[Rfam]
RNA sequence: CCCUUAUCUUUUAAAAGUUUCAGGUUGAUCCCUUAUCUUUAUUUUAGAUUUCAAGUUGGUCCAUUCUGUCAAUUUUUUUACUAUUACCGUUAAAUUUGGACACAUGUCAGCUGUCCAAGGGUGUCACGUCUCCAAAUUUAACGGUAAUAGUAAAAUAUUUGACGGAAGGGACCAACUUGAAACCUAAAAUAAAGAUAAGGGAUCAACUUAAAACUUUUAAAAGAUAAGGGA
Dot-bracket structure: .(((((((..............(((.(((.(((((((((((((.(((........................................................................................................................................))).))))))))))))).))).)))..............)))))))..
RNA: MIR2655 microRNA precursor family
Organism: Trifolium subterraneum